[Rfam]
RNA: Mammalian CPEB3 ribozyme
RNA sequence: AGUUGUAAGCUUGAGGCCAUAGCAGAAGUGCUUGUAAUGUGGCCUGUCAGAUUCCAAUGAAUAUACAAAUUCUGCU
Numbered sequence: 001a002g003u004u005g006u007a008a009g010c011u012u013g014a015g016g017c018c019a020u021a022g023c024a025g026a027a028g029u030g031c032u033u034g035u036a037a038u039g040u041g042g043c044c045u046g047u048c049a050g051a052u053u054c055c056a057a058u059g060a061a062u063a064u065a066c067a068a069a070u071u072c073u074g075c076u
Base pairs, nucleotide, nucleotide: 015044016043017042018041021076022075023074024073025072026071027070028040029039030038049064051062052061053060054059